[Rfam]
RNA sequence: AUGAUGAUACUUCUGCCUGGCCAGCAUCACUGCAUUGGGGGCAGCCCGCUCGGAUGAGGGGGGGAGCUUUGAUAAAGAAGCUAUGU
Numbered sequence: 001a002u003g004a005u006g007a008u009a010c011u012u013c014u015g016c017c018u019g020g021c022c023a024g025c026a027u028c029a030c031u032g033c034a035u036u037g038g039g040g041g042c043a044g045c046c047c048g049c050u051c052g053g054a055u056g057a058g059g060g061g062g063g064g065a066g067c068u069u070u071g072a073u074a075a076a077g078a079a080g081c082u083a084u085g086u
Stems, first nucleotide, its partner, number of pairs: 012083001013044006045064003049060003065082006
This 86-nucleotide RNA sequence from Paenibacillus dendritiformis belongs to the Rfam family "pemK RNA". Lineage of the source: Bacteria > Bacillati > Bacilli > Caryophanales > Paenibacillus dendritiformis. The match comes from Rfam's covariance-model search (37 bits). It is annotated as a cis-regulatory element.